Shown here is a 113-nucleotide RNA from Capsella rubella, a member of the family "MIR4245 microRNA precursor family".

RNA sequence: AGAUUGUUAGUAUAAAACUUUGAUCUAAUACAUUAUUGAUUAUUUGGUGGAUUUUUUUCGAUUGUACGAAAUAUCAAUAAGUAUUAGAACAAAGUUUUAUACUGACAGUUUAA
Dot-bracket structure: ((((((((((((((((.(((((.((((((((.((..(.....((.((.((....)).))))....)..))..........)))))))).))))).))))))))))))))))..
Numbered sequence: 001a002g003a004u005u006g007u008u009a010g011u012a013u014a015a016a017a018c019u020u021u022g023a024u025c026u027a028a029u030a031c032a033u034u035a036u037u038g039a040u041u042a043u044u045u046g047g048u049g050g051a052u053u054u055u056u057u058u059c060g061a062u063u064g065u066a067c068g069a070a071a072u073a074u075c076a077a078u079a080a081g082u083a084u085u086a087g088a089a090c091a092a093a094g095u096u097u098u099a100u101a102c103u104g105a106c107a108g109u110u111u112a113a
Stems, first nucleotide, its partner, number of pairs: 001111016018094005024088008033070002037066001043061002046059002049056002